[Rfam]
RNA sequence: UCGACUGACGCGGGGUGCCCGGCGAUCCGGGCUGAGAUCACACCCGUCGAACCUGAUCUAGCUCGCACUAGCGAAGGGACGUCAUGUUCUGCGAUG
Numbered sequence: 001u002c003g004a005c006u007g008a009c010g011c012g013g014g015g016u017g018c019c020c021g022g023c024g025a026u027c028c029g030g031g032c033u034g035a036g037a038u039c040a041c042a043c044c045c046g047u048c049g050a051a052c053c054u055g056a057u058c059u060a061g062c063u064c065g066c067a068c069u070a071g072c073g074a075a076g077g078g079a080c081g082u083c084a085u086g087u088u089c090u091g092c093g094a095u096g
Stems, first nucleotide, its partner, number of pairs: 006084005011046004016040001017032005052077003058071004